[Rfam]
RNA sequence: AUGAAGACAGCAGGAGAGAGGUGGCUGACGCCAUCCGCCGAAGAAGUAAAUCUUUCAGGCACUUAAUUGUAUGGACUGCUGUUGGAGG
Numbered sequence: 001a002u003g004a005a006g007a008c009a010g011c012a013g014g015a016g017a018g019a020g021g022u023g024g025c026u027g028a029c030g031c032c033a034u035c036c037g038c039c040g041a042a043g044a045a046g047u048a049a050a051u052c053u054u055u056c057a058g059g060c061a062c063u064u065a066a067u068u069g070u071a072u073g074g075a076c077u078g079c080u081g082u083u084g085g086a087g088g
Stems, first nucleotide, its partner, number of pairs: 006083008020035004037060003040056002044054003
RNA: Glycine riboswitch aptamer
Organism: Salinivibrio sp. KP-1